[Rfam]
RNA sequence: AAUCUUUGAGGUGAAAAAUGCGUCGUCAUGCGCCACAUGCAAAUUGCAAUGGGCAAAAGAGAUGUUGGGAGUGACGCUCCAACCAAAGAUU
Numbered sequence: 001a002a003u004c005u006u007u008g009a010g011g012u013g014a015a016a017a018a019u020g021c022g023u024c025g026u027c028a029u030g031c032g033c034c035a036c037a038u039g040c041a042a043a044u045u046g047c048a049a050u051g052g053g054c055a056a057a058a059g060a061g062a063u064g065u066u067g068g069g070a071g072u073g074a075c076g077c078u079c080c081a082a083c084c085a086a087a088g089a090u091u
Stems, first nucleotide, its partner, number of pairs: 001091008011029004020077005031059001032054003064083005
Dot-bracket structure: ((((((((..((((.....[[[[[.)))).((((.................)))....)....(((((....]]]]].)))))))))))))
Shown here is a 91-nucleotide RNA sequence, a member of the family "skipping-rope RNA". By type it is a small RNA.